[Rfam]
RNA sequence: AAGCCAGCCAAUUGAUCUGCUUAUUUUAAUGUGUUUCUGUGGAAAUUUAGAAAAAUCAGGUAAUAGUAAUGCCAUUUUAUGAGCCUUAAGAACAGCUGAUGCCAUGGCAGUCCCUCAGAAUGGUUACAAUA
Numbered sequence: 001a002a003g004c005c006a007g008c009c010a011a012u013u014g015a016u017c018u019g020c021u022u023a024u025u026u027u028a029a030u031g032u033g034u035u036u037c038u039g040u041g042g043a044a045a046u047u048u049a050g051a052a053a054a055a056u057c058a059g060g061u062a063a064u065a066g067u068a069a070u071g072c073c074a075u076u077u078u079a080u081g082a083g084c085c086u087u088a089a090g091a092a093c094a095g096c097u098g099a100u101g102c103c104a105u106g107g108c109a110g111u112c113c114c115u116c117a118g119a120a121u122g123g124u125u126a127c128a129a130u131a
Stems, first nucleotide, its partner, number of pairs: 003061003007057001016043005071124004083111002087107001089105001093101001

A member of the RNA family "Small nucleolar RNA SNORA33" from Jaculus jaculus, 131 nucleotides long. Rfam describes the family as follows. ACA33 is a member of the H/ACA class of snoRNA that guide the sites of modification of uridines to pseudouridines. A search with the family's covariance model found it, with a score of 88 bits. Pairs were carried over by alignment from the consensus structure, which was predicted with PFOLD. Lineage of the source: Eukaryota > Chordata > Dipnotetrapodomorpha > Eutheria > Jaculus.